[Rfam]
RNA sequence: CAGACCAGACCACUCAUCCGGCAGGAGCGGGGGACCCACUUGUGCCGUGCCGCCACCGUGCGGAACGGCUCGGGGUGAAGCCGGUUCCCUGUGCGAAAGCACGGGGUUCCGGCCGGGCCACUCCAGCCCGAAUCCGACAGCUCACCUCGCAGGCGCCAGGAGAGGACCC
Numbered sequence: 001c002a003g004a005c006c007a008g009a010c011c012a013c014u015c016a017u018c019c020g021g022c023a024g025g026a027g028c029g030g031g032g033g034a035c036c037c038a039c040u041u042g043u044g045c046c047g048u049g050c051c052g053c054c055a056c057c058g059u060g061c062g063g064a065a066c067g068g069c070u071c072g073g074g075g076u077g078a079a080g081c082c083g084g085u086u087c088c089c090u091g092u093g094c095g096a097a098a099g100c101a102c103g104g105g106g107u108u109c110c111g112g113c114c115g116g117g118c119c120a121c122u123c124c125a126g127c128c129c130g131a132a133u134c135c136g137a138c139a140g141c142u143c144a145c146c147u148c149g150c151a152g153g154c155g156c157c158a159g160g161a162g163a164g165g166a167c168c169c
Base pairs, nucleotide, nucleotide: 005025006024027150028149029148030147031146032145037072073135074134075133081112082111083110084109115129116128117127118126
RNA: c-di-AMP riboswitch aptamer (ydaO/yuaA leader)
Organism: Streptomyces albus